[Rfam]
RNA: Small nucleolar RNA SNORD59
Organism: Pleuronectes platessa
RNA sequence: UCUUCAGUGAUUAUUAAUACAGUGACUUUCGUUCUUCUGAGUAUAAUGAAGCCAACCUCUGUUCUGAGAAGA
Numbered sequence: 001u002c003u004u005c006a007g008u009g010a011u012u013a014u015u016a017a018u019a020c021a022g023u024g025a026c027u028u029u030c031g032u033u034c035u036u037c038u039g040a041g042u043a044u045a046a047u048g049a050a051g052c053c054a055a056c057c058u059c060u061g062u063u064c065u066g067a068g069a070a071g072a
Stems, first nucleotide, its partner, number of pairs: 001072003005068001